[Rfam]
RNA sequence: AAACCUCUGGCGAAAAUCGUGCAUGUUC
Numbered sequence: 001a002a003a004c005c006u007c008u009g010g011c012g013a014a015a016a017u018c019g020u021g022c023a024u025g026u027u028c
Base pairs, nucleotide, nucleotide: 002027003026004025008023010020011019012018013017
Shown here is a 28-nucleotide sequence, a member of the family "L19-Flavobacteria ribosomal protein leader". Pairs were carried over by alignment from the consensus structure, which is taken from published work. It is annotated as a cis-regulatory leader.